Shown here is a 101-nucleotide sequence, a member of the family "Glycine riboswitch aptamer".
[Rfam]
RNA sequence: GCGCAUUCCGCAGGAGAGAGCGGUUUGCCCGCCGGGCAGAACCGCCGCCGAAGGCGCAAGUGCACCCGCAAUCGCUCAGGCAAAAGGACUGCAAGAAUCGG
Numbered sequence: 001g002c003g004c005a006u007u008c009c010g011c012a013g014g015a016g017a018g019a020g021c022g023g024u025u026u027g028c029c030c031g032c033c034g035g036g037c038a039g040a041a042c043c044g045c046c047g048c049c050g051a052a053g054g055c056g057c058a059a060g061u062g063c064a065c066c067c068g069c070a071a072u073c074g075c076u077c078a079g080g081c082a083a084a085a086g087g088a089c090u091g092c093a094a095g096a097a098u099c100g101g
Base pairs, nucleotide, nucleotide: 006096007095010092011091012090013089020045021044022043023042024041025040026039047081048080049079050077051076054075055074056073060069061068
It scores 62 bits against the family's covariance model.